[Rfam]
Rfam assigns this 148-nucleotide RNA sequence to the family "FMN riboswitch aptamer (RFN element)".
A search with the family's covariance model found it, with a score of 114 bits.
Rfam describes the family as follows. The RFN element is a highly conserved domain that is found frequently in the 5'-untranslated regions of prokaryotic mRNAs that encode for flavin mononucleotide (FMN) biosynthesis and transport proteins.
Rfam links the family to the GO term FMN binding.
RNA sequence: UGUGUCCUUCGGGGUCGGGUGAAAAUCCCAACCGGCGGUGUUGUAUAUUUUUAUACUAAGCCCGUGAGCUUCAUAUAGUUUUUUUAUAUGUUGCUGAUCUAGUUAGAAUCUAGAGCCGACAGUAUAGUCUGGAUGGGAGAAGGAUGGA
Numbered sequence: 001u002g003u004g005u006c007c008u009u010c011g012g013g014g015u016c017g018g019g020u021g022a023a024a025a026u027c028c029c030a031a032c033c034g035g036c037g038g039u040g041u042u043g044u045a046u047a048u049u050u051u052u053a054u055a056c057u058a059a060g061c062c063c064g065u066g067a068g069c070u071u072c073a074u075a076u077a078g079u080u081u082u083u084u085u086a087u088a089u090g091u092u093g094c095u096g097a098u099c100u101a102g103u104u105a106g107a108a109u110c111u112a113g114a115g116c117c118g119a120c121a122g123u124a125u126a127g128u129c130u131g132g133a134u135g136g137g138a139g140a141a142g143g144a145u146g147g148a
Base pairs, nucleotide, nucleotide: 003146004145005144006143007142008141009140010139017029018028019027031128032127033118034117035065036064037063038062060116061115068094069093098114099113100112101111102110120131121130122129